A member of the RNA family "MIR7502 microRNA precursor family" from Gossypium australe, 138 nucleotides long.
RNA sequence: UAUUAAAAAUUUCAUCCAUUUGUACUGUUAAAAACUAACGACAAAAUAAUUAGGCAGUAACAUGUAAUAUGUCAUAUAUACAUCAUGUUGACAUAAAUGAUUCAGUUUUUAAUAAUAAAAUAGAUGAAAUUUUUAAUA
Numbered sequence: 001u002a003u004u005a006a007a008a009a010u011u012u013c014a015u016c017c018a019u020u021u022g023u024a025c026u027g028u029u030a031a032a033a034a035c036u037a038a039c040g041a042c043a044a045a046a047u048a049a050u051u052a053g054g055c056a057g058u059a060a061c062a063u064g065u066a067a068u069a070u071g072u073c074a075u076a077u078a079u080a081c082a083u084c085a086u087g088u089u090g091a092c093a094u095a096a097a098u099g100a101u102u103c104a105g106u107u108u109u110u111a112a113u114a115a116u117a118a119a120a121u122a123g124a125u126g127a128a129a130u131u132u133u134u135a136a137u138a
Stems, first nucleotide, its partner, number of pairs: 002137015018121004023117002026114001028112006

The organism belongs to Gossypium, within Eukaryota. A search with the family's covariance model found it, with a score of 84 bits. The family's consensus secondary structure was predicted with RNAalifold.